RNA sequence: AUCUUUGCGCUUGGGGCAAUGACUCAGCUAAUGAGGUAUUAACCGAGGCGCGUCAAUUGCUGGUUGAAAACUAUUUCCAAACCCCCUCUUUGGCCUUGGGUCUCCCUUGGCCAUCGAGAAUUUCUGGAAGGGUUUCCUUUGACU
Numbered sequence: 001a002u003c004u005u006u007g008c009g010c011u012u013g014g015g016g017c018a019a020u021g022a023c024u025c026a027g028c029u030a031a032u033g034a035g036g037u038a039u040u041a042a043c044c045g046a047g048g049c050g051c052g053u054c055a056a057u058u059g060c061u062g063g064u065u066g067a068a069a070a071c072u073a074u075u076u077c078c079a080a081a082c083c084c085c086c087u088c089u090u091u092g093g094c095c096u097u098g099g100g101u102c103u104c105c106c107u108u109g110g111c112c113a114u115c116g117a118g119a120a121u122u123u124c125u126g127g128a129a130g131g132g133u134u135u136c137c138u139u140u141g142a143c144u
Base pairs, nucleotide, nucleotide: 021054022053023052025050027049028048029047035044036043037042086118087117088116091113092112093111094110095109098105099104

Rfam assigns this 144-nucleotide RNA sequence from Lactuca sativa to the family "U4 spliceosomal RNA". On this family, see Plaschka et al., Nature 2017: "Structure of a pre-catalytic spliceosome". Rfam classes the family as a spliceosomal small nuclear RNA. The source organism's lineage runs through Eukaryota, Tracheophyta, eudicotyledons, asterids and Lactuca. Gene Ontology terms of the family: spliceosomal tri-snRNP complex assembly and U4 snRNP. The match comes from Rfam's covariance-model search (99 bits).